[Rfam]
RNA sequence: GGUGAAAAGGAUGAACCCUGGGUCGCUGAUUCAUGUGACUUGAUAAACGCCAUCCAUUUCCUGAUUCACC
Number, nucleotide and partner (000 for none) at each position: 001g070002g069003u068004g067005a066006a065007a000008a000009g000010g000011a000012u000013g000014a000015a000016c000017c000018c000019u000020g000021g000022g000023u000024c000025g000026c000027u000028g000029a000030u000031u000032c000033a000034u000035g000036u000037g000038a000039c000040u000041u000042g000043a000044u000045a000046a000047a000048c000049g000050c000051c000052a000053u000054c000055c000056a000057u000058u000059u000060c000061c000062u000063g000064a000065u006066u005067c004068a003069c002070c001

This 70-nucleotide RNA sequence from Ailuropoda melanoleuca belongs to the Rfam family "Small nucleolar RNA SNORD123". The match comes from Rfam's covariance-model search (91 bits). Rfam links the family to the GO terms RNA processing and nucleolus. It is annotated as a C/D-box small nucleolar RNA. Rfam 15.1 lists 518 matches to the family in 509 species. A reference for the family is Yang et al. (2006), "snoSeeker: an advanced computational package for screening of guide and orphan snoRNA genes in the human genome", Nucleic Acids Res.